[Rfam]
RNA sequence: UACUACCAAACCCUAUCUCCACCUCCACGUGGUUUACGCUGGGAGCUCUUUCUUAACGAAAAGCGUCCGAAGAAGAAGG
Numbered sequence: 001u002a003c004u005a006c007c008a009a010a011c012c013c014u015a016u017c018u019c020c021a022c023c024u025c026c027a028c029g030u031g032g033u034u035u036a037c038g039c040u041g042g043g044a045g046c047u048c049u050u051u052c053u054u055a056a057c058g059a060a061a062a063g064c065g066u067c068c069g070a071a072g073a074a075g076a077a078g079g
Base pairs, nucleotide, nucleotide: 013079014078016076017075018074020072021033022032023031045066046065048063049062050061051060053058
The record is a 79-nucleotide RNA from Hermetia illucens, which matches "drz-agam-1 ribozyme" in Rfam. Rfam links the family to the GO term catalytic activity. A reference for the family is Webb et al. (2009), "Widespread occurrence of self-cleaving ribozymes", Science. Pairs were carried over by alignment from the consensus structure, which is taken from published work.